[Rfam]
RNA sequence: UUGUAAAUAACUAAAUAUGUUCAUAUAGUCGCAGAGAUAAGGUCUGCAAGUUUCUACCGGACUGCCGUAAAUGGUCCGACUAUGAGCGAAGCACCUAGUAAA
Numbered sequence: 001u002u003g004u005a006a007a008u009a010a011c012u013a014a015a016u017a018u019g020u021u022c023a024u025a026u027a028g029u030c031g032c033a034g035a036g037a038u039a040a041g042g043u044c045u046g047c048a049a050g051u052u053u054c055u056a057c058c059g060g061a062c063u064g065c066c067g068u069a070a071a072u073g074g075u076c077c078g079a080c081u082a083u084g085a086g087c088g089a090a091g092c093a094c095c096u097a098g099u100a101a102a
Stems, first nucleotide, its partner, number of pairs: 018088008029049001031047005058078007

Source information: A member of the RNA family "Purine riboswitch aptamer" from Desulfosporosinus acididurans, 102 nucleotides long. The organism belongs to Desulfosporosinus, within Bacteria.